[Rfam]
Nucleotides: 115
Base pairs, nucleotide, nucleotide: 002114003113004112005111006110007109009107010106011105012104013103015101016100017099018098019097020096021095022094023093024092025091027089028088029087030086031085032084033083034082036080038078039077040076041075042074043073044072049067051065052064
Number, partner (000 for none) and nucleotide at each position: 001000u002114u003113a004112u005111a006110a007109g008000c009107a010106a011105a012104a013103u014000u015101u016100u017099g018098u019097a020096u021095u022094u023093u024092a025091g026000a027089u028088u029087c030086a031085u032084u033083c034082g035000u036080u037000a038078a039077a040076u041075g042074a043073u044072g045000u046000a047000c048000g049067u050000g051065g052064u053000c054000u055000a056000u057000a058000a059000u060000a061000a062000a063000g064052a065051c066000g067049a068000u069000g070000u071000a072044c073043a074042u075041c076040a077039u078038u079000a080036a081000u082034u083033g084032a085031a086030u087029g088028a089027a090000u091025c092024u093023a094022a095021a096020a097019u098018g099017c100016a101015a102000a103013g104012u105011u106010u107009u108000a109007c110006u111005u112004a113003u114002a115000a